The record is a 63-nucleotide RNA sequence from Ewingella americana, which matches "Fluoride riboswitch aptamer (crcB RNA motif)" in Rfam. The base pairs follow the family's consensus structure, which is taken from published work. The source organism's lineage runs through Bacteria, Pseudomonadota, Gammaproteobacteria, Enterobacterales and Ewingella americana.

[Rfam]
RNA sequence: GCAAACGAUGGAGAUGACAUUCCUCCGAAACCGCCUUUACGGGCUAAUGAUGUCUACGCAAUC
Number, nucleotide and partner (000 for none) at each position: 001g000002c000003a000004a000005a000006c000007g000008a000009u000010g026011g025012a024013g023014a000015u000016g054017a053018c052019a051020u050021u049022c000023c013024u012025c011026c010027g000028a000029a000030a000031c000032c000033g044034c043035c042036u041037u000038u000039a000040c000041g036042g035043g034044c033045u000046a000047a000048u000049g021050a020051u019052g018053u017054c016055u000056a000057c000058g000059c000060a000061a000062u000063c000